[Rfam]
RNA sequence: UGGAAGUGAUGAAAUAGAGAUAAUGGGAUGUCAUUUUGAAUGGAGUGUGUGUGAUAAACGGACUGGGGGUGGGGUGUGGGUAAUGUGUGUGUGUGUGUGCGCGUGUAUAGAAGAGGCUUUAAACGGGGGCACUGAUAAUGCAGUGCUGAUUCCGGAGUGCAUCUGAGGCAUGUUGUUAAGUUCUGGGGUGCCGCUUUACAACGUUGCCAAUGAUUAAACCCCGACACAAGCCCACCAAGACAAGCCUAGGCAUCUUAAAUCUCUAACAGGUUCAUUAAUGAAAGUGAUCCUGUGAUCUGAUCUGA
Numbered sequence: 001u002g003g004a005a006g007u008g009a010u011g012a013a014a015u016a017g018a019g020a021u022a023a024u025g026g027g028a029u030g031u032c033a034u035u036u037u038g039a040a041u042g043g044a045g046u047g048u049g050u051g052u053g054a055u056a057a058a059c060g061g062a063c064u065g066g067g068g069g070u071g072g073g074g075u076g077u078g079g080g081u082a083a084u085g086u087g088u089g090u091g092u093g094u095g096u097g098u099g100c101g102c103g104u105g106u107a108u109a110g111a112a113g114a115g116g117c118u119u120u121a122a123a124c125g126g127g128g129g130c131a132c133u134g135a136u137a138a139u140g141c142a143g144u145g146c147u148g149a150u151u152c153c154g155g156a157g158u159g160c161a162u163c164u165g166a167g168g169c170a171u172g173u174u175g176u177u178a179a180g181u182u183c184u185g186g187g188g189u190g191c192c193g194c195u196u197u198a199c200a201a202c203g204u205u206g207c208c209a210a211u212g213a214u215u216a217a218a219c220c221c222c223g224a225c226a227c228a229a230g231c232c233c234a235c236c237a238a239g240a241c242a243a244g245c246c247u248a249g250g251c252a253u254c255u256u257a258a259a260u261c262u263c264u265a266a267c268a269g270g271u272u273c274a275u276u277a278a279u280g281a282a283a284g285u286g287a288u289c290c291u292g293u294g295a296u297c298u299g300a301u302c303u304g305a
Base pairs, nucleotide, nucleotide: 001304002303003302004301171203172202173201174200175199176198178196180192181190183188